This 103-nucleotide RNA sequence from Niallia taxi belongs to the Rfam family "Purine riboswitch aptamer". The family's consensus secondary structure is taken from published work. It scores 79 bits against the family's covariance model. Its Rfam clan is "Purine riboswitches". The organism belongs to Niallia, within Bacteria. Riboswitches are metabolite binding domains within certain messenger RNAs that serve as precision sensors for their corresponding targets.
[Rfam]
RNA sequence: GUUUGCAACUAAAGAAAUACUCGUAUAAUUAUGGGGGAUAUGGCCCAAAAGUUUCUACCGAGCUACCGUAAAUAGCUUGACUACGAGGUAAGUGUAUAUAAAG
Numbered sequence: 001g002u003u004u005g006c007a008a009c010u011a012a013a014g015a016a017a018u019a020c021u022c023g024u025a026u027a028a029u030u031a032u033g034g035g036g037g038a039u040a041u042g043g044c045c046c047a048a049a050a051g052u053u054u055c056u057a058c059c060g061a062g063c064u065a066c067c068g069u070a071a072a073u074a075g076c077u078u079g080a081c082u083a084c085g086a087g088g089u090a091a092g093u094g095u096a097u098a099u100a101a102a103g
Stems, first nucleotide, its partner, number of pairs: 020087006029050002032047004059079007